Glycine riboswitch aptamer: a 121-nucleotide sequence.
Pairs were carried over by alignment from the consensus structure.
RNA sequence: CACGACGCCUCUGGAGAGCGGGCGCGCCCAGGCAACACGGGCGGCCCCACCGAAGGGGUAAAGCCGCCGGCCGUCCACAGGCCGGGGCCAAUCUCUCAGGUUCGGUGACAGAGGGGGCUUG
Numbered sequence: 001c002a003c004g005a006c007g008c009c010u011c012u013g014g015a016g017a018g019c020g021g022g023c024g025c026g027c028c029c030a031g032g033c034a035a036c037a038c039g040g041g042c043g044g045c046c047c048c049a050c051c052g053a054a055g056g057g058g059u060a061a062a063g064c065c066g067c068c069g070g071c072c073g074u075c076c077a078c079a080g081g082c083c084g085g086g087g088c089c090a091a092u093c094u095c096u097c098a099g100g101u102u103c104g105g106u107g108a109c110a111g112a113g114g115g116g117g118c119u120u121g
Stems, first nucleotide, its partner, number of pairs: 006116001008114006020047004049101003052097002056095003063088002